[Rfam]
RNA sequence: CAAUGCAAUAGAGGUUGCGACAAUCACAAGUUAAGUUUGAGUUCGCGAAAACAAUGAUAGUUAACUUAGGGUUGCCGCCGAAAUAGAUUUAAUAUUCGCGUGUUAAUCUGUUGGGCUAUAGAAGAAUAUUCUAUAGACUGUCCUGGUUAGUCCCCAGGGAGCGCUAUAAGAUUU
Numbered sequence: 001c002a003a004u005g006c007a008a009u010a011g012a013g014g015u016u017g018c019g020a021c022a023a024u025c026a027c028a029a030g031u032u033a034a035g036u037u038u039g040a041g042u043u044c045g046c047g048a049a050a051a052c053a054a055u056g057a058u059a060g061u062u063a064a065c066u067u068a069g070g071g072u073u074g075c076c077g078c079c080g081a082a083a084u085a086g087a088u089u090u091a092a093u094a095u096u097c098g099c100g101u102g103u104u105a106a107u108c109u110g111u112u113g114g115g116c117u118a119u120a121g122a123a124g125a126a127u128a129u130u131c132u133a134u135a136g137a138c139u140g141u142c143c144u145g146g147u148u149a150g151u152c153c154c155c156a157g158g159g160a161g162c163g164c165u166a167u168a169a170g171a172u173u174u
Base pairs, nucleotide, nucleotide: 008167009166010165011164017078018077019076021074022073023072024071025070033067034066035065036064037063039061082112083111084110085109086108087107088106089105091104092103093102094101113139114138116136117135118134119133120132121131122130123129141159142158143157144156145155146154
Shown here is a 174-nucleotide RNA sequence from Lactobacillus crispatus, a member of the family "Lysine riboswitch aptamer".